Notes
This 138-nucleotide RNA from Carassius auratus belongs to the Rfam family "Small nucleolar RNA SNORA84". The match comes from Rfam's covariance-model search (72 bits). Rfam classes the family as an H/ACA-box small nucleolar RNA. Gene Ontology terms of the family: RNA processing and nucleolus.
[Rfam]
RNA sequence: GCCUGGUGGUUCCUCGAGGCAGCUCGUCUGUGCUGAUCCAUGGGGUUUUAUUUAACAGGCACAUAACGAUCUCUGCGAUUUAAUGCUUGGAAGUUGCCGUUCCCAUGCAGCUUCCACAGCCCGGUUGCAGAAACAUGU
Numbered sequence: 001g002c003c004u005g006g007u008g009g010u011u012c013c014u015c016g017a018g019g020c021a022g023c024u025c026g027u028c029u030g031u032g033c034u035g036a037u038c039c040a041u042g043g044g045g046u047u048u049u050a051u052u053u054a055a056c057a058g059g060c061a062c063a064u065a066a067c068g069a070u071c072u073c074u075g076c077g078a079u080u081u082a083a084u085g086c087u088u089g090g091a092a093g094u095u096g097c098c099g100u101u102c103c104c105a106u107g108c109a110g111c112u113u114c115c116a117c118a119g120c121c122c123g124g125u126u127g128c129a130g131a132a133a134c135a136u137g138u
Stems, first nucleotide, its partner, number of pairs: 001060004007050002012045005019037001020035004073130001075128006085120002088116003092112006